[Rfam]
RNA sequence: CUCGAGUUGUCUCUCAUGUCUAGACCAUUUGUGAGAAGGGAUUUUCUGUUUGCAUCAUUCACUCCCACCAAUCUCUAAAUAUGCAAUAAGUAUUAUUCUCACUUAAGAAAGAAACAAUCCUAUUAUUUGAGAUGCUUCUACAGCUUGGAAUAUGUUGUUUCGUUCUUUAUAUUGCUACCAAAACGUUAAGAAACCAGGUGAACAUUUCCCUUGAAAGGUCUAGCCUGUAGGUCAUAGUCAUUAGACCCACCUCUCACUUCUCGAUUAAAAUGUGUUAUUUCUUCCAUCAAAAUCUGAUCCUUGAGGAGUUAGGUACAUAAGUAAGUGCACAGAGUGAACACAUAACUUGAUAAAGUCAUUUACACUUUGGACAUUUUCCCAAGAGAUGCCAAACUUCUCAAUGGAUUUUGAGUUUUUCAAUGAUAGCUAAAAUUUGUAUCUAGCACUACUUAUAGCUACACUAGUAUACUUGAUAAUAUUUGGGGGAGUGGGGGAGAUGCCGUGUUAUUAUUCCCUUCUCAUCGAUGGUCUAGAUGUGUGAGGUGACUCUCAUGGAGG
Numbered sequence: 001c002u003c004g005a006g007u008u009g010u011c012u013c014u015c016a017u018g019u020c021u022a023g024a025c026c027a028u029u030u031g032u033g034a035g036a037a038g039g040g041a042u043u044u045u046c047u048g049u050u051u052g053c054a055u056c057a058u059u060c061a062c063u064c065c066c067a068c069c070a071a072u073c074u075c076u077a078a079a080u081a082u083g084c085a086a087u088a089a090g091u092a093u094u095a096u097u098c099u100c101a102c103u104u105a106a107g108a109a110a111g112a113a114a115c116a117a118u119c120c121u122a123u124u125a126u127u128u129g130a131g132a133u134g135c136u137u138c139u140a141c142a143g144c145u146u147g148g149a150a151u152a153u154g155u156u157g158u159u160u161c162g163u164u165c166u167u168u169a170u171a172u173u174g175c176u177a178c179c180a181a182a183a184c185g186u187u188a189a190g191a192a193a194c195c196a197g198g199u200g201a202a203c204a205u206u207u208c209c210c211u212u213g214a215a216a217g218g219u220c221u222a223g224c225c226u227g228u229a230g231g232u233c234a235u236a237g238u239c240a241u242u243a244g245a246c247c248c249a250c251c252u253c254u255c256a257c258u259u260c261u262c263g264a265u266u267a268a269a270a271u272g273u274g275u276u277a278u279u280u281c282u283u284c285c286a287u288c289a290a291a292a293u294c295u296g297a298u299c300c301u302u303g304a305g306g307a308g309u310u311a312g313g314u315a316c317a318u319a320a321g322u323a324a325g326u327g328c329a330c331a332g333a334g335u336g337a338a339c340a341c342a343u344a345a346c347u348u349g350a351u352a353a354a355g356u357c358a359u360u361u362a363c364a365c366u367u368u369g370g371a372c373a374u375u376u377u378c379c380c381a382a383g384a385g386a387u388g389c390c391a392a393a394c395u396u397c398u399c400a401a402u403g404g405a406u407u408u409u410g411a412g413u414u415u416u417u418c419a420a421u422g423a424u425a426g427c428u429a430a431a432a433u434u435u436g437u438a439u440c441u442a443g444c445a446c447u448a449c450u451u452a453u454a455g456c457u458a459c460a461c462u463a464g465u466a467u468a469c470u471u472g473a474u475a476a477u478a479u480u481u482g483g484g485g486g487a488g489u490g491g492g493g494g495a496g497a498u499g500c501c502g503u504g505u506u507a508u509u510a511u512u513c514c515c516u517u518c519u520c521a522u523c524g525a526u527g528g529u530c531u532a533g534a535u536g537u538g539u540g541a542g543g544u545g546a547c548u549c550u551c552a553u554g555g556a557g558g
Stems, first nucleotide, its partner, number of pairs: 001557003004549010015538015031522011043510001052500005064491001066490003074487003
Dot-bracket structure: (((((((((((((.(((((((((((((((.(((((((((((.(........(((((.......(.(((.....(((........................................................................................................................................................................................................................................................................................................................................................................................................................)))))))....))))).........).))))))))))).))))))))))))))).)))))))))).....))).

MIR824 microRNA precursor family: a 558-nucleotide RNA sequence from Brassica carinata. NCBI's taxonomy places the organism under Eukaryota, Euphyllophyta, Spermatophyta, Brassiceae, Brassica. The literature on the family includes a 2007 paper in PLoS One by Fahlgren et al., "High-throughput sequencing of Arabidopsis microRNAs: evidence for frequent birth and death of MIRNA genes". The base pairs follow the family's consensus structure, which was predicted with WAR.